RNA sequence: GGUGGUUCUCGUGUGACACACCCAAGAAUCAGGCUCCCUCCUCUCUGGUUCUGGUUGUGUCACCUGAGAAUCGCA
Numbered sequence: 001g002g003u004g005g006u007u008c009u010c011g012u013g014u015g016a017c018a019c020a021c022c023c024a025a026g027a028a029u030c031a032g033g034c035u036c037c038c039u040c041c042u043c044u045c046u047g048g049u050u051c052u053g054g055u056u057g058u059g060u061c062a063c064c065u066g067a068g069a070a071u072c073g074c075a
Stems, first nucleotide, its partner, number of pairs: 002074002005071007013063005019057002022054002025052009
RNA: mir-9223 microRNA precursor family